[Rfam]
RNA sequence: GCUCUCGACAAGAGCUUGGUCUGUGCUGUGAGCGUGCUCUGAAGCACACUCUCAGCACAGAGAUUGAGCUCUUGUUGAGAGC
Numbered sequence: 001g002c003u004c005u006c007g008a009c010a011a012g013a014g015c016u017u018g019g020u021c022u023g024u025g026c027u028g029u030g031a032g033c034g035u036g037c038u039c040u041g042a043a044g045c046a047c048a049c050u051c052u053c054a055g056c057a058c059a060g061a062g063a064u065u066g067a068g069c070u071c072u073u074g075u076u077g078a079g080a081g082c
Base pairs, nucleotide, nucleotide: 004079005078006077009074010073011072012071013070014069015068016067017066021060022059023058024057025056026055030053031052032051

Rfam assigns this 82-nucleotide RNA sequence from Aquarana catesbeiana to the family "mir-11 microRNA precursor family".
It scores 47 bits against the family's covariance model.
The family's consensus secondary structure was predicted with RNAalifold.
On this family, see Marco et al., Genome Biol Evol 2010: "Functional shifts in insect microRNA evolution".